[Rfam]
RNA: Rhizobiales sRNA Atu_C8
RNA sequence: GAAUGUUGAAAUGAUCUUUGUCGUAGUAGGAACGCGCAUGGGCAAGGCGGCAUAGCCGCCAGGCGAAGCACCCAUGCGCGGUACUUAGGCCCCGGACGGGGCUUUUUUUAUGCCCAGAA
Numbered sequence: 001g002a003a004u005g006u007u008g009a010a011a012u013g014a015u016c017u018u019u020g021u022c023g024u025a026g027u028a029g030g031a032a033c034g035c036g037c038a039u040g041g042g043c044a045a046g047g048c049g050g051c052a053u054a055g056c057c058g059c060c061a062g063g064c065g066a067a068g069c070a071c072c073c074a075u076g077c078g079c080g081g082u083a084c085u086u087a088g089g090c091c092c093c094g095g096a097c098g099g100g101g102c103u104u105u106u107u108u109u110a111u112g113c114c115c116a117g118a119a
Stems, first nucleotide, its partner, number of pairs: 007028001029115002033080010046060005063069002087104007